Rfam assigns this 151-nucleotide sequence from Streptococcus pyogenes to the family "MarS sRNA". The organism belongs to Streptococcus pyogenes serotype M18, within Bacteria. The sequence is in the family's curated seed alignment. The family's consensus secondary structure is taken from published work. Rfam links the family to the GO terms mRNA 5'-UTR binding and positive regulation of translation, ncRNA-mediated. Rfam classes the family as a small RNA.
RNA sequence: AUGCGAUGAGUCGAUUGUGACUGCAAAGUCACUUUUGCGCAGGGGAGGUCAUUAAUGCGGGAAGCCGACUUUGAUAAUCUGUGUGAACCAUUUUAUCACAAUCUUAUUUAUUAAGAAUGCCCCUUGGAUUGAGAUAUUCUCAAUCCUUUUU
Numbered sequence: 001a002u003g004c005g006a007u008g009a010g011u012c013g014a015u016u017g018u019g020a021c022u023g024c025a026a027a028g029u030c031a032c033u034u035u036u037g038c039g040c041a042g043g044g045g046a047g048g049u050c051a052u053u054a055a056u057g058c059g060g061g062a063a064g065c066c067g068a069c070u071u072u073g074a075u076a077a078u079c080u081g082u083g084u085g086a087a088c089c090a091u092u093u094u095a096u097c098a099c100a101a102u103c104u105u106a107u108u109u110a111u112u113a114a115g116a117a118u119g120c121c122c123c124u125u126g127g128a129u130u131g132a133g134a135u136a137u138u139c140u141c142a143a144u145c146c147u148u149u150u151u
Base pairs, nucleotide, nucleotide: 012037013036014035017032018031019030020029021028022027042123043122044121045120046071047070048069049068057065058064072098073097074096075095076094077093105119106118107117108116126146127145128144129143130142131141132140133139134138